[Rfam]
RNA sequence: AGAAAAGUAGGUGCCGCCCCGCACAGGGGCGACGCAUGAAGCGAGACGACAAAGCAGGUUCAACGAGAGCGCCCGAAUGACCAGAUCAACCACGAGAUCAUCGAGCGCUAG
Numbered sequence: 001a002g003a004a005a006a007g008u009a010g011g012u013g014c015c016g017c018c019c020c021g022c023a024c025a026g027g028g029g030c031g032a033c034g035c036a037u038g039a040a041g042c043g044a045g046a047c048g049a050c051a052a053a054g055c056a057g058g059u060u061c062a063a064c065g066a067g068a069g070c071g072c073c074c075g076a077a078u079g080a081c082c083a084g085a086u087c088a089a090c091c092a093c094g095a096g097a098u099c100a101u102c103g104a105g106c107g108c109u110a111g
Stems, first nucleotide, its partner, number of pairs: 011072004015031006059066002093103003

The family of this 111-nucleotide RNA from Paraburkholderia sp. LEh10 is "Burkholderia sRNA Bp1_Cand684_SIPHT". It scores 50 bits against the family's covariance model. The source organism's lineage runs through Bacteria, Pseudomonadati, Pseudomonadota, Burkholderiaceae and Paraburkholderia. It is annotated as a small RNA. On this family, see Khoo et al., BMC Genomics 2012: "Computational discovery and RT-PCR validation of novel Burkholderia conserved and Burkholderia pseudomallei unique sRNAs". The family's consensus secondary structure was predicted with RNAalifold.